[Rfam]
RNA: Small Cajal body specific RNA 3
RNA sequence: GCUGGGACCAGUUGGGACCAGUCAUGGGCAAAAGAAAUGUGUUUUUUUUUGUCCACCAUUGCAGUCUUCCUAGAGCAAAGUGGAGGUCUCUGUCUGCUUUAGGAGAGCCGACUAAACCGGAUCGUUCCCCUCCAUACACA
Numbered sequence: 001g002c003u004g005g006g007a008c009c010a011g012u013u014g015g016g017a018c019c020a021g022u023c024a025u026g027g028g029c030a031a032a033a034g035a036a037a038u039g040u041g042u043u044u045u046u047u048u049u050u051g052u053c054c055a056c057c058a059u060u061g062c063a064g065u066c067u068u069c070c071u072a073g074a075g076c077a078a079a080g081u082g083g084a085g086g087u088c089u090c091u092g093u094c095u096g097c098u099u100u101a102g103g104a105g106a107g108c109c110g111a112c113u114a115a116a117c118c119g120g121a122u123c124g125u126u127c128c129c130c131u132c133c134a135u136a137c138a139c140a
Base pairs, nucleotide, nucleotide: 004070005069006068009064011062012061025055026054027053028052029051030050031049034046035045036044082133083132084131085130086129090124092122093121094120096118098116099115100114101113102112